The family of this 377-nucleotide sequence from Marinitenerispora sediminis is "Bacterial RNase P class A". Pairs were carried over by alignment from the consensus structure, which is taken from published work. About the family: Ribonuclease P (RNase P) is a ubiquitous endoribonuclease, found in archaea, bacteria and eukarya as well as chloroplasts and mitochondria. Taxonomically the source falls in Marinitenerispora (Bacteria, Bacillati, Actinomycetota, Streptosporangiales).
RNA sequence: GGAGUCGGCCAGGCGGUCGCGGCGCCGUACGGCGUCGAGGAAAGUCCGGACUCCACAGGGCAGGGUGGUCGGUAACACCGACCCGGGGCGACCCGCGGGAAAGUGCCACAGAGAACAGACCGCCACCGCUCGCGGUGGUAAGGGUGAAACGGUGGUGUAAGAGACCACCAGCGGCCGGAGUGAUCCGGCCGGCUCGGUAAACCCCACCCGGAGCAAGGUCAAGAGGGGGACCCCGGUCCCCUGCGCGAACGCUUGAGGGCGGCCCGCCCGACGUUCGCGGGUAGACCGCAGGAGGCUGACGGCAACGCCAGUCCCAGAUGGAUGGCCGCCCGGUCCGCUUGGACCGACAGAAUCCGGCUUACCGGCCGACUCUUCCG
Numbered sequence: 001g002g003a004g005u006c007g008g009c010c011a012g013g014c015g016g017u018c019g020c021g022g023c024g025c026c027g028u029a030c031g032g033c034g035u036c037g038a039g040g041a042a043a044g045u046c047c048g049g050a051c052u053c054c055a056c057a058g059g060g061c062a063g064g065g066u067g068g069u070c071g072g073u074a075a076c077a078c079c080g081a082c083c084c085g086g087g088g089c090g091a092c093c094c095g096c097g098g099g100a101a102a103g104u105g106c107c108a109c110a111g112a113g114a115a116c117a118g119a120c121c122g123c124c125a126c127c128g129c130u131c132g133c134g135g136u137g138g139u140a141a142g143g144g145u146g147a148a149a150c151g152g153u154g155g156u157g158u159a160a161g162a163g164a165c166c167a168c169c170a171g172c173g174g175c176c177g178g179a180g181u182g183a184u185c186c187g188g189c190c191g192g193c194u195c196g197g198u199a200a201a202c203c204c205c206a207c208c209c210g211g212a213g214c215a216a217g218g219u220c221a222a223g224a225g226g227g228g229g230a231c232c233c234c235g236g237u238c239c240c241c242u243g244c245g246c247g248a249a250c251g252c253u254u255g256a257g258g259g260c261g262g263c264c265c266g267c268c269c270g271a272c273g274u275u276c277g278c279g280g281g282u283a284g285a286c287c288g289c290a291g292g293a294g295g296c297u298g299a300c301g302g303c304a305a306c307g308c309c310a311g312u313c314c315c316a317g318a319u320g321g322a323u324g325g326c327c328g329c330c331c332g333g334u335c336c337g338c339u340u341g342g343a344c345c346g347a348c349a350g351a352a353u354c355c356g357g358c359u360u361a362c363c364g365g366c367c368g369a370c371u372c373u374u375c376c377g
Stems, first nucleotide, its partner, number of pairs: 001373010012330007020037007042360003046357005051213004058265004063209005068082005083097001084095004098204002103202002105198003120143002122139007151169006171193001172191008217287004257269004294313005300307002